[Rfam]
RNA: mir-4847 microRNA precursor family
Organism: Strongylocentrotus purpuratus
RNA sequence: UCACCUCAUAAUGAUGGCGCGGUGCGGUGCGAUGUGAUAUCAAAAAAUUCGCUCUCAUUCGCCAUCAUUCUUAGGUGU
Numbered sequence: 001u002c003a004c005c006u007c008a009u010a011a012u013g014a015u016g017g018c019g020c021g022g023u024g025c026g027g028u029g030c031g032a033u034g035u036g037a038u039a040u041c042a043a044a045a046a047a048u049u050c051g052c053u054c055u056c057a058u059u060c061g062c063c064a065u066c067a068u069u070c071u072u073a074g075g076u077g078u
Stems, first nucleotide, its partner, number of pairs: 002077005010069010021059004026055002029052004
Dot-bracket structure: .(((((...((((((((((.((((.((.((((................)))).))))))))))))))))...))))).